[Rfam]
RNA sequence: CUUGACGGCCCCGAGCCGCAGCGGCCGUUCCGCGUCACGCUCCCGCCCGUAGGUGGCGAGCAGCGCCUGCGCCUC
Dot-bracket structure: ..............(((.....))).....(((....((...(...(((....)))...)...))...)))....
RNA: ASpks TB sRNA